Rfam assigns this 118-nucleotide sequence from Alkalihalophilus pseudofirmus to the family "epsC RNA". The base pairs follow the family's consensus structure, which is taken from published work. The match comes from Rfam's covariance-model search (104 bits). The family has 30 seed sequences and 450 matches in Rfam 15.1. Rfam classes the family as a cis-regulatory element.
RNA sequence: CGGUUAUGCCUCCUACCCGAUAUCGUUGGAGGUACUCGGCUAUACUGUGGGGGGUGCGCGGGCACCCCCUUAGGUGCGUGUUACCAAUGGUGUGGCGUGAGGGGAGGUUAAAUGCCUC
Numbered sequence: 001c002g003g004u005u006a007u008g009c010c011u012c013c014u015a016c017c018c019g020a021u022a023u024c025g026u027u028g029g030a031g032g033u034a035c036u037c038g039g040c041u042a043u044a045c046u047g048u049g050g051g052g053g054g055u056g057c058g059c060g061g062g063c064a065c066c067c068c069c070u071u072a073g074g075u076g077c078g079u080g081u082u083a084c085c086a087a088u089g090g091u092g093u094g095g096c097g098u099g100a101g102g103g104g105a106g107g108u109u110a111a112a113u114g115c116c117u118c
Base pairs, nucleotide, nucleotide: 001019002018003017007034008033009032010031011030012029013028035101036100037099038098039096040095041094042093043092044091045090046089049070050069051068052067053066054065055064056063073085074084075083076082104118105117106116107115108114